[Rfam]
RNA sequence: UGAUACAAGUGUCAAAAGUAUAUAAAUUCGAUGCAAGCCUGCUUGCAAUAGAAUUUAUAUACUUUUGACACACAAAAAAUAUGAGUAAGUAGCCAUUUUUUGUAAAAAAAUGAGCGAAUUACGAAUAUUUUUGUAGGGAUUGCCAGAAGCGAGGCUGUAGCAAUCCUGUAUCA
Numbered sequence: 001u002g003a004u005a006c007a008a009g010u011g012u013c014a015a016a017a018g019u020a021u022a023u024a025a026a027u028u029c030g031a032u033g034c035a036a037g038c039c040u041g042c043u044u045g046c047a048a049u050a051g052a053a054u055u056u057a058u059a060u061a062c063u064u065u066u067g068a069c070a071c072a073c074a075a076a077a078a079a080u081a082u083g084a085g086u087a088a089g090u091a092g093c094c095a096u097u098u099u100u101u102g103u104a105a106a107a108a109a110a111u112g113a114g115c116g117a118a119u120u121a122c123g124a125a126u127a128u129u130u131u132u133g134u135a136g137g138g139a140u141u142g143c144c145a146g147a148a149g150c151g152a153g154g155c156u157g158u159a160g161c162a163a164u165c166c167u168g169u170a171u172c173a
Stems, first nucleotide, its partner, number of pairs: 001173007010070004017063013031049002033046005075132008085122004092115002094112007137166007148156003